[Rfam]
RNA sequence: GAGCAAAAGCAGAAGCACCCGGCUUCUCACCUGAUCGACGCCUUAGGGCUGUUGGCUGGUAUGAGGAAUACAUCUAAUGAAUGUCAUUAGUGUGGGUGCCGUCGUGCGCUCACACUUUUUAAUUUGC
Numbered sequence: 001g002a003g004c005a006a007a008a009g010c011a012g013a014a015g016c017a018c019c020c021g022g023c024u025u026c027u028c029a030c031c032u033g034a035u036c037g038a039c040g041c042c043u044u045a046g047g048g049c050u051g052u053u054g055g056c057u058g059g060u061a062u063g064a065g066g067a068a069u070a071c072a073u074c075u076a077a078u079g080a081a082u083g084u085c086a087u088u089a090g091u092g093u094g095g096g097u098g099c100c101g102u103c104g105u106g107c108g109c110u111c112a113c114a115c116u117u118u119u120u121a122a123u124u125u126g127c
Stems, first nucleotide, its partner, number of pairs: 011027006029060003037053003040049002091114009